RNA sequence: ACAUCAAGAAGGGAGGUGAUCCGAGCAGAUGAAGUCUCUUCGGACCGAUGAGGUGGUCGCGCGCUAGCGCGUCCUGAUCUUUCCUCCGCCGGCACCCGUCAGGGCCGGCGGUGACAGGGACCUGGUGGCGACAACCACGCGACCACCGGAGUCCGCGGGCGCCGCGCACUCGUCCAGCGCGGCAGGGGCACCCGCCCCGGCCCGCGGGCUCUCCUGU
Numbered sequence: 001a002c003a004u005c006a007a008g009a010a011g012g013g014a015g016g017u018g019a020u021c022c023g024a025g026c027a028g029a030u031g032a033a034g035u036c037u038c039u040u041c042g043g044a045c046c047g048a049u050g051a052g053g054u055g056g057u058c059g060c061g062c063g064c065u066a067g068c069g070c071g072u073c074c075u076g077a078u079c080u081u082u083c084c085u086c087c088g089c090c091g092g093c094a095c096c097c098g099u100c101a102g103g104g105c106c107g108g109c110g111g112u113g114a115c116a117g118g119g120a121c122c123u124g125g126u127g128g129c130g131a132c133a134a135c136c137a138c139g140c141g142a143c144c145a146c147c148g149g150a151g152u153c154c155g156c157g158g159g160c161g162c163c164g165c166g167c168a169c170u171c172g173u174c175c176a177g178c179g180c181g182g183c184a185g186g187g188g189c190a191c192c193c194g195c196c197c198c199g200g201c202c203c204g205c206g207g208g209c210u211c212u213c214c215u216g217u
Stems, first nucleotide, its partner, number of pairs: 016060005062130005068124001071121005149211012162182006
The family of this 217-nucleotide RNA sequence from Xylanimonas allomyrinae is "Actinobacteria sRNA Ms_IGR-5".
Taxonomically the source falls in Xylanimonas (Bacteria, Actinomycetota, Actinomycetes, Micrococcales).
Rfam classes the family as a small RNA.